Rfam assigns this 111-nucleotide sequence from Lachnospira multipara to the family "S10-Clostridia ribosomal protein leader". It is annotated as a cis-regulatory leader. The literature on the family includes a 2020 paper in BMC Microbiol by Eckert and Weinberg, "Discovery of 20 novel ribosomal leader candidates in bacteria and archaea".
[Rfam]
RNA sequence: UGAUAGCUGUGAAGCGAGAGGUUGCUACAUUUGAACAAUAGCUUGAAUGUAGGUUUUCCGUGGAGCGAAUGUCAAGGCUGGAAGCGAUUCCAGCGAAGAAUCUGGCGACAA
Numbered sequence: 001u002g003a004u005a006g007c008u009g010u011g012a013a014g015c016g017a018g019a020g021g022u023u024g025c026u027a028c029a030u031u032u033g034a035a036c037a038a039u040a041g042c043u044u045g046a047a048u049g050u051a052g053g054u055u056u057u058c059c060g061u062g063g064a065g066c067g068a069a070u071g072u073c074a075a076g077g078c079u080g081g082a083a084g085c086g087a088u089u090c091c092a093g094c095g096a097a098g099a100a101u102c103u104g105g106c107g108a109c110a111a
Base pairs, nucleotide, nucleotide: 014061015060016059018058019057020056021055025052026051027050028049029048030047031046032045033044034043070110071109072108073107077106078105079104080103081102082101